[Rfam]
RNA sequence: UUCGUUGUUGUCAGUGAUGUAUUGUUGGAACUGAAUGUAAGUGAUCUCAAAUAUUCGUCACUACCACUGAGACAACAAUGAA
Numbered sequence: 001u002u003c004g005u006u007g008u009u010g011u012c013a014g015u016g017a018u019g020u021a022u023u024g025u026u027g028g029a030a031c032u033g034a035a036u037g038u039a040a041g042u043g044a045u046c047u048c049a050a051a052u053a054u055u056c057g058u059c060a061c062u063a064c065c066a067c068u069g070a071g072a073c074a075a076c077a078a079u080g081a082a
Base pairs, nucleotide, nucleotide: 001082002081003080004079005078006077007076008075009074010073011072012071